[Rfam]
RNA sequence: AUCAAGAGUAGAAGCGUUCAGCACGGUGCUCUGGCCCUUGUCGGUCAGCAGCUUCGCGGGUCGUUGCUCUUGAA
Numbered sequence: 001a002u003c004a005a006g007a008g009u010a011g012a013a014g015c016g017u018u019c020a021g022c023a024c025g026g027u028g029c030u031c032u033g034g035c036c037c038u039u040g041u042c043g044g045u046c047a048g049c050a051g052c053u054u055c056g057c058g059g060g061u062c063g064u065u066g067c068u069c070u071u072g073a074a
Stems, first nucleotide, its partner, number of pairs: 005070006015059001019060001021057002025053003
The record is a 74-nucleotide RNA, which matches "Xanthine riboswitch aptamer (NMT1 RNA)" in Rfam.
Pairs were carried over by alignment from the consensus structure, which is taken from published work.
Its family is annotated with purine nucleobase binding in the Gene Ontology.
For this family Rfam cites "A bacterial riboswitch class senses xanthine and uric acid to regulate genes associated with purine oxidation" (Yu and Breaker, RNA, 2020).